[Rfam]
RNA sequence: UGCCGACUACUUAGUCCAAGGAUCAUUGCUAUAGUAUUUGUGAUGUUUUAAUUGUUAUAAACAAAACAGAUUUUCAAAAGUGAUGAUGAACAGACGCUGCUCUAAAUUGAAUUGUUUUCGAAAUUUUUCCACCUUCUUAAGGAAAAUUGUAAAACUUUCCGAAAAAUUACAUGAUAUUAUUUUGUUGGCAAAUUGAAUUUUUAUUUUUUUUGCCAAUCAUAAAUAAAUGAGCUCGCGUCCGCUGAACUUAC
Numbered sequence: 001u002g003c004c005g006a007c008u009a010c011u012u013a014g015u016c017c018a019a020g021g022a023u024c025a026u027u028g029c030u031a032u033a034g035u036a037u038u039u040g041u042g043a044u045g046u047u048u049u050a051a052u053u054g055u056u057a058u059a060a061a062c063a064a065a066a067c068a069g070a071u072u073u074u075c076a077a078a079a080g081u082g083a084u085g086a087u088g089a090a091c092a093g094a095c096g097c098u099g100c101u102c103u104a105a106a107u108u109g110a111a112u113u114g115u116u117u118u119c120g121a122a123a124u125u126u127u128u129c130c131a132c133c134u135u136c137u138u139a140a141g142g143a144a145a146a147u148u149g150u151a152a153a154a155c156u157u158u159c160c161g162a163a164a165a166a167u168u169a170c171a172u173g174a175u176a177u178u179a180u181u182u183u184g185u186u187g188g189c190a191a192a193u194u195g196a197a198u199u200u201u202u203a204u205u206u207u208u209u210u211u212g213c214c215a216a217u218c219a220u221a222a223a224u225a226a227a228u229g230a231g232c233u234c235g236c237g238u239c240c241g242c243u244g245a246a247c248u249u250a251c
Base pairs, nucleotide, nucleotide: 001042008036009035010034011033019030020029022027048070052069053068054067055066056065078249079248080247081246093239094238095237096236097235099232100231101230102229106178108176109175116165117164118163120159121158122157123156179224180223181222182221184218
Shown here is a 251-nucleotide sequence from Plasmodium falciparum, a member of the family "ACEA small nucleolar RNA U3". It is one of the family's seed sequences. From the family's description: Small nucleolar RNAs (snoRNAs) are involved in the processing and modification of rRNA in the nucleolus. There are two main classes of snoRNAs: the box C/D class, and the box H/ACA class. U3 snoRNA is a member of the box C/D class. Indeed, the box C/D element is a subset of the six short sequence elements found in all U3 snoRNAs, namely boxes A, A', B, C, C', and D. The U3 snoRNA secondary structure is characterised by a small 5' domain (with boxes A and A'), and a larger 3' domain (with boxes B, C, C', and D), the two domains being linked by a single-stranded hinge. Boxes B and C form the B/C motif, which appears to be exclusive to U3 snoRNAs, and boxes C' and D form the C'/D motif. The latter is functionally similar to the C/D motifs found in other snoRNAs. The 5' domain and the hinge region act as a pre-rRNA-binding domain. The 3' domain has conserved protein-binding sites. Both the box B/C and box C'/D motifs are sufficient for nuclear retention of U3 snoRNA. The box C'/D motif is also necessary for nucleolar localisation, stability and hyper-methylation of U3 snoRNA. Both box B/C and C'/D motifs are involved in specific protein interactions and are necessary for the rRNA processing functions of U3 snoRNA. The family is grouped with related families in Rfam's "U3 clan". The family's RNA type in Rfam is C/D-box small nucleolar RNA.